[Rfam]
RNA sequence: AGUUUUGCACAGUGGCAGUAUCAUAGCCAAUGAGGUUUAUCCAAGGUGCGGUUAUUGCUGACGGAAAAUUUUUCCCAAUACCUCACCAUGACAACUUGAAAUAUAGUUGGCAUUGGUGAAAUAAAUAAAUU
Dot-bracket structure: ...................(((.(.(((.....((.....))..)))).)))................................((((((.(((((........))))).))).)))......((....))